[Rfam]
RNA: mir-515 microRNA precursor family
RNA sequence: UCUCAGGCUGUGACUCUCCAAAGGGAAGACUUUUCUGUUGCCUGAAAGAAAACGCACUUCCCUUUCGAGUGUUACCGUUUGAGA
Numbered sequence: 001u002c003u004c005a006g007g008c009u010g011u012g013a014c015u016c017u018c019c020a021a022a023g024g025g026a027a028g029a030c031u032u033u034u035c036u037g038u039u040g041c042c043u044g045a046a047a048g049a050a051a052a053c054g055c056a057c058u059u060c061c062c063u064u065u066c067g068a069g070u071g072u073u074a075c076c077g078u079u080u081g082a083g084a
Stems, first nucleotide, its partner, number of pairs: 001084005007078002010075005016069003020065009032056001034054001038052002